[Rfam]
RNA sequence: UAUAUCGCUAGUAUCACUAUACAGACAGGUAAAUACUGACUUUCAUUCGAAGGCAGUAUUACUCCUAUGGGGGUAGUGGUUAUUGUCCGGCGUCAAACGGGCAUAAAAAAAGCGCCCGGAGGCGCUUUUUUAGCAGA
Dot-bracket structure: ..............................................................((......))....................................((((((((....)))))))).........
Description: The family of this 137-nucleotide RNA sequence from Citrobacter youngae is "Enterobacteria sRNA STnc130". Pairs were carried over by alignment from the consensus structure, which was predicted with WAR. The family's RNA type in Rfam is small RNA.